[Rfam]
RNA sequence: UCAGCUGGCCGGGUGGCCGCUCCGAGUUCGCUCGGGGAGGAAAGUCCGGGCUCCAUGGAAGCACGGUGCCGGAUAACGUCCGGCGGGGGCGACCCCAGGGAAAGUGCCACAGAAAGUAAACCGCCCCACACAGGCCCUCGGGCCUUGGGGUAAGGGUGAAAGGGUGCGGUAAGAGCGCACCGCGGACGCAGUAAUGCGGACGGCACGGUAAACCCCACCAGGAGCAAAACCGAAUAGGGACGACAGGCGUUCGCGCCAGGCCGGUUUCCAGGCUCGUCGUCCGGGUUGGUUGCUUGAGGCGGUCAGCGAUGGCCGUCCCAGAGGAAUGGCCGCCACGUCCAAGGCGCGAGCCUUGGGCCCUACAAAACCCGGCUUACAGGCCAGCUGACACC
Numbered sequence: 001u002c003a004g005c006u007g008g009c010c011g012g013g014u015g016g017c018c019g020c021u022c023c024g025a026g027u028u029c030g031c032u033c034g035g036g037g038a039g040g041a042a043a044g045u046c047c048g049g050g051c052u053c054c055a056u057g058g059a060a061g062c063a064c065g066g067u068g069c070c071g072g073a074u075a076a077c078g079u080c081c082g083g084c085g086g087g088g089g090c091g092a093c094c095c096c097a098g099g100g101a102a103a104g105u106g107c108c109a110c111a112g113a114a115a116g117u118a119a120a121c122c123g124c125c126c127c128a129c130a131c132a133g134g135c136c137c138u139c140g141g142g143c144c145u146u147g148g149g150g151u152a153a154g155g156g157u158g159a160a161a162g163g164g165u166g167c168g169g170u171a172a173g174a175g176c177g178c179a180c181c182g183c184g185g186a187c188g189c190a191g192u193a194a195u196g197c198g199g200a201c202g203g204c205a206c207g208g209u210a211a212a213c214c215c216c217a218c219c220a221g222g223a224g225c226a227a228a229a230c231c232g233a234a235u236a237g238g239g240a241c242g243a244c245a246g247g248c249g250u251u252c253g254c255g256c257c258a259g260g261c262c263g264g265u266u267u268c269c270a271g272g273c274u275c276g277u278c279g280u281c282c283g284g285g286u287u288g289g290u291u292g293c294u295u296g297a298g299g300c301g302g303u304c305a306g307c308g309a310u311g312g313c314c315g316u317c318c319c320a321g322a323g324g325a326a327u328g329g330c331c332g333c334c335a336c337g338u339c340c341a342a343g344g345c346g347c348g349a350g351c352c353u354u355g356g357g358c359c360c361u362a363c364a365a366a367a368c369c370c371g372g373c374u375u376a377c378a379g380g381c382c383a384g385c386u387g388a389c390a391c392c
Stems, first nucleotide, its partner, number of pairs: 001388010011377001012334007020037007042375003046372005051224004060267002065219004069083005084098001085096004099215002104213002106209003121155002123151006163181006182204001183202002187198004228291004238282006259274004298317008